[Rfam]
RNA sequence: CAACCAGGUCGGACAGCCGCGGGGGGAGGCCGAAAGGCCCCCCGUGAGGAAAGUCCGGGCUCCGCAGGGCAAGGAUAACGGGUAACGCCCGCCGGGGGUGACCCUAGGACAAGUGCAACAGAAAGAUACCGCCUCGUUUGGAGUAUGAGCCCCUUGGCUUGUGCCAGCGAGGUAAGGGUGAAAAGGUGUGGUAAGAGCGCACCCGCCCCAUGGGAACAUCGGGGUGCUGUAAACUCUAUCCGGAGCAACACCGUGUGUGGGACUACAGGCUGGCCCGGCCGUCCCCAAGAGGUGGCUGGAACCCAGGAGCAAUCCUGGGUCUAGAUAGAUGGCUGUCGAUGACAGAACCCGGCUUAUAGACCUGAUUGCAUG
Numbered sequence: 001c002a003a004c005c006a007g008g009u010c011g012g013a014c015a016g017c018c019g020c021g022g023g024g025g026g027a028g029g030c031c032g033a034a035a036g037g038c039c040c041c042c043c044g045u046g047a048g049g050a051a052a053g054u055c056c057g058g059g060c061u062c063c064g065c066a067g068g069g070c071a072a073g074g075a076u077a078a079c080g081g082g083u084a085a086c087g088c089c090c091g092c093c094g095g096g097g098g099u100g101a102c103c104c105u106a107g108g109a110c111a112a113g114u115g116c117a118a119c120a121g122a123a124a125g126a127u128a129c130c131g132c133c134u135c136g137u138u139u140g141g142a143g144u145a146u147g148a149g150c151c152c153c154u155u156g157g158c159u160u161g162u163g164c165c166a167g168c169g170a171g172g173u174a175a176g177g178g179u180g181a182a183a184a185g186g187u188g189u190g191g192u193a194a195g196a197g198c199g200c201a202c203c204c205g206c207c208c209c210a211u212g213g214g215a216a217c218a219u220c221g222g223g224g225u226g227c228u229g230u231a232a233a234c235u236c237u238a239u240c241c242g243g244a245g246c247a248a249c250a251c252c253g254u255g256u257g258u259g260g261g262a263c264u265a266c267a268g269g270c271u272g273g274c275c276c277g278g279c280c281g282u283c284c285c286c287a288a289g290a291g292g293u294g295g296c297u298g299g300a301a302c303c304c305a306g307g308a309g310c311a312a313u314c315c316u317g318g319g320u321c322u323a324g325a326u327a328g329a330u331g332g333c334u335g336u337c338g339a340u341g342a343c344a345g346a347a348c349c350c351g352g353c354u355u356a357u358a359g360a361c362c363u364g365a366u367u368g369c370a371u372g
Stems, first nucleotide, its partner, number of pairs: 001368003005364006011357001012337007020046002023043004028038001051355003055352005060245004068276002073241005079091004093107001094105004108236002113234002115230003129177002131173008185203006205225005210219003249294004259285005268280004301320008